[Rfam]
RNA: PreQ1 (pre queuosine) riboswitch aptamer
RNA sequence: CCACACGUGGUUCAUUCAUACCAUCCCACGUAAAAAAACUAAGGAGGA
Numbered sequence: 001c002c003a004c005a006c007g008u009g010g011u012u013c014a015u016u017c018a019u020a021c022c023a024u025c026c027c028a029c030g031u032a033a034a035a036a037a038a039c040u041a042a043g044g045a046g047g048a
Stems, first nucleotide, its partner, number of pairs: 006030005015041001